Background
Rfam assigns this 368-nucleotide RNA sequence from Marivita hallyeonensis to the family "Bacterial RNase P class A". Ribonuclease P (RNase P) is a ubiquitous endoribonuclease, found in archaea, bacteria and eukarya as well as chloroplasts and mitochondria. A search with the family's covariance model found it, with a score of 283 bits. NCBI's taxonomy places the organism under Bacteria, Pseudomonadati, Pseudomonadota, Roseobacteraceae, Marivita. It is annotated as a ribozyme.

[Rfam]
RNA sequence: GCGGAGGGCCGGACGGCCGCCCUGUCACAGGGGAGGAAAGUCCGGACUCCAUGAAGCAAGGGUGCCGGGUAAUGCCCGGGCAGAGCAAUCUGACGGAAAGCGCCACAGAAAUCAAACUACCCCGGCCCGCCGGGGAACAGGUGAAACGGUGGGGUAAAAGCCCACCGGGGGGCUGGCAACAGCCCCCGCACGGCAAGCCCCACCCGGAGCAAUGCCGAAUAGGGGGAUCGCGCGGGGCAACCCGCAGGGUCGCUUCAGCCCAGAUCCCCGGGUUGGCAGCACGAGGCCGUUGGCGACAGCGGUCCCAGAGGAAUGGUCGUCCCUCCAGCAACGGAGGACAGAAUCCGGCUUACAGGCCCUCCGCGCGU
Numbered sequence: 001g002c003g004g005a006g007g008g009c010c011g012g013a014c015g016g017c018c019g020c021c022c023u024g025u026c027a028c029a030g031g032g033g034a035g036g037a038a039a040g041u042c043c044g045g046a047c048u049c050c051a052u053g054a055a056g057c058a059a060g061g062g063u064g065c066c067g068g069g070u071a072a073u074g075c076c077c078g079g080g081c082a083g084a085g086c087a088a089u090c091u092g093a094c095g096g097a098a099a100g101c102g103c104c105a106c107a108g109a110a111a112u113c114a115a116a117c118u119a120c121c122c123c124g125g126c127c128c129g130c131c132g133g134g135g136a137a138c139a140g141g142u143g144a145a146a147c148g149g150u151g152g153g154g155u156a157a158a159a160g161c162c163c164a165c166c167g168g169g170g171g172g173c174u175g176g177c178a179a180c181a182g183c184c185c186c187c188g189c190a191c192g193g194c195a196a197g198c199c200c201c202a203c204c205c206g207g208a209g210c211a212a213u214g215c216c217g218a219a220u221a222g223g224g225g226g227a228u229c230g231c232g233c234g235g236g237g238c239a240a241c242c243c244g245c246a247g248g249g250u251c252g253c254u255u256c257a258g259c260c261c262a263g264a265u266c267c268c269c270g271g272g273u274u275g276g277c278a279g280c281a282c283g284a285g286g287c288c289g290u291u292g293g294c295g296a297c298a299g300c301g302g303u304c305c306c307a308g309a310g311g312a313a314u315g316g317u318c319g320u321c322c323c324u325c326c327a328g329c330a331a332c333g334g335a336g337g338a339c340a341g342a343a344u345c346c347g348g349c350u351u352a353c354a355g356g357c358c359c360u361c362c363g364c365g366c367g368u
Stems, first nucleotide, its partner, number of pairs: 001364010011353001012321007020033004038351003042348005047209004056255001060205005065079005080094001081092004095200002100198002102194003117140002120135006148166006167189001168187008213278004223269006247261004285304008